[Rfam]
RNA sequence: ACGGGAUUCGUCCCGGAAAGGAAUGUGGCUCACCAUUGAGCUGAACCUGAGG
Numbered sequence: 001a002c003g004g005g006a007u008u009c010g011u012c013c014c015g016g017a018a019a020g021g022a023a024u025g026u027g028g029c030u031c032a033c034c035a036u037u038g039a040g041c042u043g044a045a046c047c048u049g050a051g052g
Stems, first nucleotide, its partner, number of pairs: 002015004019048003027042005